[Rfam]
RNA sequence: GUCUCCCGUGCCUACUGAGCUGAUAAUCAGUUUUUAUAGUCUAACUGGCUCAGUUCAGCAGGAACAGGAG
Numbered sequence: 001g002u003c004u005c006c007c008g009u010g011c012c013u014a015c016u017g018a019g020c021u022g023a024u025a026a027u028c029a030g031u032u033u034u035u036a037u038a039g040u041c042u043a044a045c046u047g048g049c050u051c052a053g054u055u056c057a058g059c060a061g062g063a064a065c066a067g068g069a070g
Base pairs, nucleotide, nucleotide: 003070004069005068006067008065009064011062012061013060015058016057017056018055019054020053021052022051023050027048028047029046030045031044

The record is a 70-nucleotide RNA from Polypterus senegalus, which matches "mir-24 microRNA precursor family" in Rfam.
It scores 86 bits against the family's covariance model.
The family has 63 seed sequences and 1,372 matches in Rfam 15.1.
The source organism's lineage runs through Eukaryota, Chordata, Euteleostomi, Polypteridae and Polypterus.